[Rfam]
RNA: Nuclear RNase P
Organism: Hepatospora eriocheir
RNA sequence: GAGAAGUAAAAGCCUUUGCAAGGAGAUAAUUAAAGAUAUCUCUUAGGAAGGUCUGAGACGAAGACUCCAAUUUUAGGAUUGGAAGUAACGAAAUGUUAUGGUUUAGAGACCACUAUUCACUUUAAUAGAAAUGUAGCAUUUACUUUCAGAAUAACUUGAUAAUUUAAUUAUCAAAGAAUAUUUAAGUAAGUGCAUGGAAAUGGGUGAAUGUCUUCAUAAAUAAUAGUGGAAUGCAAAGGGAUGUUGUUUUAACAUUAACUCAAUUCAGACUACUCUUUACAUCUC
Numbered sequence: 001g002a003g004a005a006g007u008a009a010a011a012g013c014c015u016u017u018g019c020a021a022g023g024a025g026a027u028a029a030u031u032a033a034a035g036a037u038a039u040c041u042c043u044u045a046g047g048a049a050g051g052u053c054u055g056a057g058a059c060g061a062a063g064a065c066u067c068c069a070a071u072u073u074u075a076g077g078a079u080u081g082g083a084a085g086u087a088a089c090g091a092a093a094u095g096u097u098a099u100g101g102u103u104u105a106g107a108g109a110c111c112a113c114u115a116u117u118c119a120c121u122u123u124a125a126u127a128g129a130a131a132u133g134u135a136g137c138a139u140u141u142a143c144u145u146u147c148a149g150a151a152u153a154a155c156u157u158g159a160u161a162a163u164u165u166a167a168u169u170a171u172c173a174a175a176g177a178a179u180a181u182u183u184a185a186g187u188a189a190g191u192g193c194a195u196g197g198a199a200a201u202g203g204g205u206g207a208a209u210g211u212c213u214u215c216a217u218a219a220a221u222a223a224u225a226g227u228g229g230a231a232u233g234c235a236a237a238g239g240g241a242u243g244u245u246g247u248u249u250u251a252a253c254a255u256u257a258a259c260u261c262a263a264u265u266c267a268g269a270c271u272a273c274u275c276u277u278u279a280c281a282u283c284u285c
Base pairs, nucleotide, nucleotide: 001285002284003283004282008278009277010276013239014238015237016236017235018234019233021044022043023042024041025040053268054267055266056265057264063212064211065210089095099112100111101110102109103108116208117207118206119205120204121203122202136193137192138191139190140189141188142187143186144185145184240256241255242254243253244252245251246250